[Rfam]
Rfam assigns this 124-nucleotide RNA from Caenorhabditis briggsae to the family "Caenorhabditis sRNA ceN56". It is annotated as a small RNA.
RNA sequence: CCGUAUGAUUACAAACUUCGCUGAUACCUGCCCACCCGAAAGCUCAGAGACUAGGAGUGGGGUCCCGGUUGAGGACGGCGCUGACAACGGUGGGAACCAUGAUACAGAUUAUGAGAGAUGAUGG
Dot-bracket structure: (((...........................((((((....(((((...(((..(((......)))..)))...)...).)))......))))))...((((((....))))))........)))